[Rfam]
RNA sequence: CAAGUCCACUACGAUGAACGAGUAGCGAACCACAUCGACCCCGAGCCGUGCGUCGGUAUCCGCGAGGAUAUCGGCGAAGCGUCGGUAGGGUAACGUGCGGGCCAGCCAUUGAGCCACGAUAGAAUUGCGAUCCCGGGUGCCGACGCUGUACAGAAAGCGGAAGGCAAUACGGCGGGGCGCGUAAGCGCGAGCGCCCCGAAGACCUGGCGUGGUCGAAGACCC
Number, nucleotide and partner (000 for none) at each position: 001c000002a000003a000004g000005u000006c000007c000008a000009c000010u000011a000012c037013g036014a035015u034016g033017a000018a000019c000020g030021a000022g000023u190024a000025g188026c187027g000028a000029a000030c020031c000032a000033c016034a015035u014036c013037g012038a000039c000040c090041c089042c088043g000044a000045g086046c085047c084048g083049u081050g080051c076052g075053u074054c073055g072056g071057u070058a069059u068060c067061c066062g000063c000064g000065a000066g061067g060068a059069u058070a057071u056072c055073g054074g053075c052076g051077a000078a000079g000080c050081g049082u000083c048084g047085g046086u045087a000088g042089g041090g040091u000092a000093a000094c000095g000096u000097g000098c000099g000100g000101g000102c000103c000104a000105g000106c000107c000108a000109u000110u216111g214112a000113g213114c212115c211116a210117c209118g208119a000120u000121a000122g000123a000124a000125u000126u000127g000128c000129g000130a000131u000132c000133c207134c206135g205136g204137g203138u202139g165140c164141c163142g000143a000144c159145g158146c157147u156148g000149u000150a000151c000152a000153g000154a000155a000156a147157g146158c145159g144160g000161a000162a000163g141164g140165c139166a000167a000168u000169a000170c201171g000172g000173c198174g197175g196176g195177g194178c193179g192180c191181g000182u000183a000184a000185g000186c000187g026188c025189g000190a023191g180192c179193g178194c177195c176196c175197c174198g173199a000200a000201g170202a138203c137204c136205u135206g134207g133208c118209g117210u116211g115212g114213u113214c111215g000216a110217a000218g000219a000220c000221c000222c000

Rfam assigns this 222-nucleotide RNA from Paraburkholderia panacisoli to the family "Group II catalytic intron D1-D4-6". NCBI's taxonomy places the organism under Bacteria, Pseudomonadati, Betaproteobacteria, Burkholderiales, Paraburkholderia. It scores 177 bits against the family's covariance model. For this family Rfam cites "The ins and outs of group II introns" (Bonen and Vogel, Trends Genet, 2001).